[Rfam]
RNA sequence: UGAUGGUGUCACACACAAUGCUGGGAGAUGUCAUCACGUGGUACCUCCUUCUGUGAUGUCAUUACCCAGCACCACGAUGUCUGUCU
Numbered sequence: 001u002g003a004u005g006g007u008g009u010c011a012c013a014c015a016c017a018a019u020g021c022u023g024g025g026a027g028a029u030g031u032c033a034u035c036a037c038g039u040g041g042u043a044c045c046u047c048c049u050u051c052u053g054u055g056a057u058g059u060c061a062u063u064a065c066c067c068a069g070c071a072c073c074a075c076g077a078u079g080u081c082u083g084u085c086u
Stems, first nucleotide, its partner, number of pairs: 002085002005082002010079002019071007027063004032058006